[Rfam]
The record is a 45-nucleotide RNA, which matches "uup RNA" in Rfam.

RNA sequence: GGACAAGCUCCGCACAAAUGGAUUGGAUGAGACAUUGUACGGAGC
Numbered sequence: 001g002g003a004c005a006a007g008c009u010c011c012g013c014a015c016a017a018a019u020g021g022a023u024u025g026g027a028u029g030a031g032a033c034a035u036u037g038u039a040c041g042g043a044g045c
Stems, first nucleotide, its partner, number of pairs: 008044005014038003